Rfam assigns this 129-nucleotide sequence from Tribolium castaneum to the family "Small Cajal body specific RNA 8".
The family has 22 seed sequences and 955 matches in Rfam 15.1.

RNA sequence: UGGACCUACGAUACGUACGCUCAAGCUUAACAUAACGGGCGUAUCACACUCAGGUCCUAGAACGAAUUGCUCUCUGAUGACUUUGGUUUGUCGAGCUUUGAACCAAGGACAGAUACGGGGCAUACAUUU
Number, nucleotide and partner (000 for none) at each position: 001u000002g057003g056004a055005c054006c053007u052008a000009c000010g000011a000012u000013a000014c000015g044016u043017a042018c041019g040020c039021u038022c037023a000024a000025g000026c000027u000028u000029a000030a000031c000032a000033u000034a000035a000036c000037g022038g021039g020040c019041g018042u017043a016044u015045c000046a000047c000048a000049c000050u000051c000052a007053g006054g005055u004056c003057c002058u000059a000060g000061a000062a000063c000064g000065a000066a000067u000068u122069g121070c120071u119072c118073u117074c000075u000076g000077a000078u000079g000080a000081c108082u107083u106084u000085g000086g103087u102088u101089u100090g000091u000092c000093g000094a000095g000096c000097u000098u000099u000100g089101a088102a087103c086104c000105a000106a083107g082108g081109a000110c000111a000112g000113a000114u000115a000116c000117g073118g072119g071120g070121c069122a068123u000124a000125c000126a000127u000128u000129u000
Annotation: scaRNAs are a specific class of small nuclear RNAs which localise to the Cajal bodies and guide the modification of RNA polymerase II transcribed spliceosomal RNAs U1, U2, U4, U5 and U12. U92 belong to the H/ACA box class of guide RNAs as it has the predicted hairpin-hinge-hairpin-tail structure, conserved H/ACA-box motifs and is found associated with GAR1. It scores 62 bits against the family's covariance model. Rfam links the family to the GO terms nucleolus, Cajal body and RNA processing.